[Rfam]
RNA sequence: UGGUUUCUGAGGCUUGUUUUAAGUUGCCUGCGGCUUGUACUUGGACACAGGCAGCUAAAGCAAGUCUCGGACACCA
Numbered sequence: 001u002g003g004u005u006u007c008u009g010a011g012g013c014u015u016g017u018u019u020u021a022a023g024u025u026g027c028c029u030g031c032g033g034c035u036u037g038u039a040c041u042u043g044g045a046c047a048c049a050g051g052c053a054g055c056u057a058a059a060g061c062a063a064g065u066c067u068c069g070g071a072c073a074c075c076a
Stems, first nucleotide, its partner, number of pairs: 003074002006071003010067011022056009032046001
Overview: A member of the RNA family "mir-1788 microRNA precursor family" from Nothobranchius furzeri, 76 nucleotides long. The family's consensus secondary structure was predicted with RNAalifold. It scores 77 bits against the family's covariance model. Its family is annotated with miRNA-mediated post-transcriptional gene silencing and RISC complex in the Gene Ontology.